[Rfam]
RNA: Bacterial small subunit ribosomal RNA, nucleotides 544 to 896
Organism: uncultured Nitrospirae bacterium MY4-5C
RNA sequence: GGCUUAAAGGGCGCGUAGGCGGUUAAUCAAGUUUAGGGUGGAAUGCAUGGGCUCAACCUAUGAAUUGCCUUGAAAACUGGUUGACUUGAGUAAGCGAGGGGAUGGCGGAAUUCCUGGUGUAGCGGUGAAAUGCGUAGAUAUCAGGAGGAAGGCCGGUGGCGAAGGCGGCCAUCUGGCGCUUAACUGACGCUGAGGCGCGAAAGCGUGGGGAUCAAACAGGAUUAGAUACCCUGGUAGUCCACGCCCUAAACGGUGGGUACUAGGUGUAGGGCUCUUUAGGGUUCUGUGCCGAAGGGAAACCGAUAAGUACCCCGCCUGGGAAGUACGGCCGCAAGGUUGAAACUCAAAGGAAU
Number, nucleotide and partner (000 for none) at each position: 001g316002g315003c314004u000005u000006a000007a000008a000009g313010g000011g198012c197013g196014c195015g000016u192017a000018g191019g190020c189021g000022g085023u084024u083025a082026a081027u080028c079029a000030a078031g077032u074033u073034u072035a071036g070037g069038g068039u067040g066041g000042a000043a000044u000045g000046c062047a061048u060049g059050g058051g057052c000053u000054c000055a000056a000057c051058c050059u049060a048061u047062g046063a000064a000065u000066u040067g039068c038069c037070u036071u035072g034073a033074a032075a000076a000077c031078u030079g028080g027081u026082u025083g024084a023085c022086u000087u000088g000089a185090g184091u183092a181093a180094g179095c178096g177097a000098g000099g000100g174101g173102a172103u171104g170105g169106c168107g000108g000109a000110a000111u147112u146113c145114c144115u143116g142117g141118u140119g000120u000121a000122g133123c132124g131125g000126u000127g000128a000129a000130a000131u124132g123133c122134g000135u000136a000137g000138a000139u000140a118141u117142c116143a115144g114145g113146a112147g111148g000149a000150a000151g000152g000153c000154c000155g000156g000157u000158g000159g166160c165161g000162a000163a000164g000165g160166c159167g000168g106169c105170c104171a103172u102173c101174u100175g000176g000177c096178g095179c094180u093181u092182a000183a091184c090185u089186g000187a000188c000189g020190c019191u018192g016193a000194g000195g014196c013197g012198c011199g000200a000201a000202a000203g244204c243205g242206u241207g240208g239209g000210g000211a000212u000213c237214a000215a000216a000217c233218a232219g231220g230221a000222u000223u000224a000225g000226a000227u000228a000229c000230c220231c219232u218233g217234g000235u000236a000237g213238u000239c208240c207241a206242c205243g204244c203245c000246c000247u000248a000249a000250a000251c000252g000253g000254u000255g312256g311257g310258u309259a308260c307261u000262a000263g290264g289265u288266g287267u286268a285269g284270g283271g282272c281273u280274c279275u000276u000277u000278a000279g274280g273281g272282u271283u270284c269285u268286g267287u266288g265289c264290c263291g000292a000293a000294g301295g300296g000297a000298a000299a000300c295301c294302g000303a000304u000305a000306a000307g260308u259309a258310c257311c256312c255313c009314g003315c002316c001317u000318g345319g344320g343321a000322a000323g000324u000325a000326c000327g338328g337329c336330c335331g000332c000333a000334a000335g330336g329337u328338u327339g000340a000341a000342a000343c320344u319345c318346a000347a000348a000349g000350g000351a000352a000353u000